[Rfam]
RNA sequence: UUGCCUUAAACUAAUGAGUAAGGAAAACAAAGCAAUGGGUCAAUGCCCGUUGCCACGCCUCCGUGCGUGAGCUAUUUUUGGAGGGUUUAUAGGCUGGCCUUGGGUUGACGCUGCUUACUUUGCAGAACUCCCUUGAGCGGGCCUCCUAAACC
Numbered sequence: 001u002u003g004c005c006u007u008a009a010a011c012u013a014a015u016g017a018g019u020a021a022g023g024a025a026a027a028c029a030a031a032g033c034a035a036u037g038g039g040u041c042a043a044u045g046c047c048c049g050u051u052g053c054c055a056c057g058c059c060u061c062c063g064u065g066c067g068u069g070a071g072c073u074a075u076u077u078u079u080g081g082a083g084g085g086u087u088u089a090u091a092g093g094c095u096g097g098c099c100u101u102g103g104g105u106u107g108a109c110g111c112u113g114c115u116u117a118c119u120u121u122g123c124a125g126a127a128c129u130c131c132c133u134u135g136a137g138c139g140g141g142c143c144u145c146c147u148a149a150a151c152c
Base pairs, nucleotide, nucleotide: 004023005022006021007020008019032053033052034051035050036049037048038047039046054069055068056067057066058065084152085151086150087149091144092143093142094141095140097138099135102132103131104130111125112124113123114122
RNA: U12 minor spliceosomal RNA
Organism: Selaginella moellendorffii